Shown here is a 385-nucleotide part of an RNA from uncultured bacterium 164, a member of the family "Bacterial large subunit ribosomal RNA".
The family is grouped with related families in Rfam's "LSU clan".
Rfam's curators put it in the seed alignment.
Pairs were carried over by alignment from the consensus structure, which is taken from published work.

[Rfam]
RNA sequence: GAUAACGUAUGUGAGAACCAUACGCACCGAAAACCUAAGGUUUCCUGCGUCAAGUUAAUCUGCGCAGGGUUAGUCUGUACCUAAGGCGAGGCCGAGAGGCGUAGUCGAUGGAGAUCCGGUUAAUAUUCCGGAACCAUGGGUAUGUGAUGUGGGUUGACGCAACAGGUUAGUCAGGACGGCUGAUGGAUGCCGUUGAAGUAAAUAGGCCGCAGCUUAGGAAAAUCCGGGCUGCACAAGGCUAAAUACACGGACGAAAGUACGGACCCUCGGGUCCGGAACAAGCUGAUGACACCAGUUGCCAAGAAAAUUCCCGUUCAUCUAUACAUACUCCACUGGCAGUACCGCAAACCGACACAGGUAGGUAGGAUGAGAAUUCUAAGGUGCU
Numbered sequence: 001g002a003u004a005a006c007g008u009a010u011g012u013g014a015g016a017a018c019c020a021u022a023c024g025c026a027c028c029g030a031a032a033a034c035c036u037a038a039g040g041u042u043u044c045c046u047g048c049g050u051c052a053a054g055u056u057a058a059u060c061u062g063c064g065c066a067g068g069g070u071u072a073g074u075c076u077g078u079a080c081c082u083a084a085g086g087c088g089a090g091g092c093c094g095a096g097a098g099g100c101g102u103a104g105u106c107g108a109u110g111g112a113g114a115u116c117c118g119g120u121u122a123a124u125a126u127u128c129c130g131g132a133a134c135c136a137u138g139g140g141u142a143u144g145u146g147a148u149g150u151g152g153g154u155u156g157a158c159g160c161a162a163c164a165g166g167u168u169a170g171u172c173a174g175g176a177c178g179g180c181u182g183a184u185g186g187a188u189g190c191c192g193u194u195g196a197a198g199u200a201a202a203u204a205g206g207c208c209g210c211a212g213c214u215u216a217g218g219a220a221a222a223u224c225c226g227g228g229c230u231g232c233a234c235a236a237g238g239c240u241a242a243a244u245a246c247a248c249g250g251a252c253g254a255a256a257g258u259a260c261g262g263a264c265c266c267u268c269g270g271g272u273c274c275g276g277a278a279c280a281a282g283c284u285g286a287u288g289a290c291a292c293c294a295g296u297u298g299c300c301a302a303g304a305a306a307a308u309u310c311c312c313g314u315u316c317a318u319c320u321a322u323a324c325a326u327a328c329u330c331c332a333c334u335g336g337c338a339g340u341a342c343c344g345c346a347a348a349c350c351g352a353c354a355c356a357g358g359u360a361g362g363u364a365g366g367a368u369g370a371g372a373a374u375u376c377u378a379a380g381g382u383g384c385u
Base pairs, nucleotide, nucleotide: 006024007023008022009021010020011019025383026382027381028380033363034362035361036360039343040342044068045067046066047065048064049063053061054060075339076338077337078336080111081110085106086105087104089102091100092099093098115132116131117130118129119128135335136334138330139329140328141327142326143325144324145323146319147318150313151312152311153310159299160298161297162296165293166292167291170287171286172285173284174283176193177192178191179190180189194251198246199245200244205239207237209232210231211230212229213228214227215226217225218224261274262273263272264271265270349358350357365377366376367375